[Rfam]
RNA: MIR7502 microRNA precursor family
Organism: Gossypium mustelinum
RNA sequence: UGUUAAAAUUUUCAUACAUUUGUAUUAUUAAAAAAAUGACGUAAUUGACCGAAUAACUAAAUAGUGAUACAUGGUGUGUUAUGUGUACCUCAUGUUACUGCACAUGAUCAAUUUUUAACAGAAAAAAUGGAUGAAUUUUUUAACA
Numbered sequence: 001u002g003u004u005a006a007a008a009u010u011u012u013c014a015u016a017c018a019u020u021u022g023u024a025u026u027a028u029u030a031a032a033a034a035a036a037u038g039a040c041g042u043a044a045u046u047g048a049c050c051g052a053a054u055a056a057c058u059a060a061a062u063a064g065u066g067a068u069a070c071a072u073g074g075u076g077u078g079u080u081a082u083g084u085g086u087a088c089c090u091c092a093u094g095u096u097a098c099u100g101c102a103c104a105u106g107a108u109c110a111a112u113u114u115u116u117a118a119c120a121g122a123a124a125a126a127a128u129g130g131a132u133g134a135a136u137u138u139u140u141u142a143a144c145a
Stems, first nucleotide, its partner, number of pairs: 002144007011135005018128004023123001025121002028118006